[Rfam]
RNA sequence: AGCCUGUGAAAUAACAGCUUUUUCAAGGAGUUAGUUAUUGAGGCUCUUACUGGUUCUCACUUAGCCAAUUCUUGAAUAGGAGAUAGCCUCUGAAAGAAAAAAGUGAAA
Numbered sequence: 001a002g003c004c005u006g007u008g009a010a011a012u013a014a015c016a017g018c019u020u021u022u023u024c025a026a027g028g029a030g031u032u033a034g035u036u037a038u039u040g041a042g043g044c045u046c047u048u049a050c051u052g053g054u055u056c057u058c059a060c061u062u063a064g065c066c067a068a069u070u071c072u073u074g075a076a077u078a079g080g081a082g083a084u085a086g087c088c089u090c091u092g093a094a095a096g097a098a099a100a101a102a103g104u105g106a107a108a
Base pairs, nucleotide, nucleotide: 001045002044003043004042011038012037013036014035015034016032017031018030019029020028021027023075024074025073026072058105059104060103079091080090081089082088

Annotation:
Shown here is a 108-nucleotide RNA, a member of the family "drum RNA". Firmicutes, Bacteroidetes (1 example), Proteobacteria (2 examples), Spirochaetes (2 examples). By type it is a small RNA.